[Rfam]
This 68-nucleotide RNA from Sediminibacillus albus belongs to the Rfam family "Bacillaceae-1 RNA". It is annotated as a small RNA. The match comes from Rfam's covariance-model search (35 bits).
RNA sequence: CAUUUAGGAAGUUCUGUUAAAACCGUUCACUUCCUAUGAACGACACAGAACGACCUAAGUCCCGUAGG
Numbered sequence: 001c002a003u004u005u006a007g008g009a010a011g012u013u014c015u016g017u018u019a020a021a022a023c024c025g026u027u028c029a030c031u032u033c034c035u036a037u038g039a040a041c042g043a044c045a046c047a048g049a050a051c052g053a054c055c056u057a058a059g060u061c062c063c064g065u066a067g068g
Stems, first nucleotide, its partner, number of pairs: 011051007026040004054068004